[Rfam]
RNA sequence: CCUUGCGGGGAUCGCCGUCCGUCAGCGCGUUGCGCCCACGGGCGCCGUUCCG
Numbered sequence: 001c002c003u004u005g006c007g008g009g010g011a012u013c014g015c016c017g018u019c020c021g022u023c024a025g026c027g028c029g030u031u032g033c034g035c036c037c038a039c040g041g042g043c044g045c046c047g048u049u050c051c052g
Stems, first nucleotide, its partner, number of pairs: 016044007025035004
Dot-bracket structure: ...............(((((((..((((...))))..)))))))........
RNA: ffh sRNA
Organism: Limimaricola hongkongensis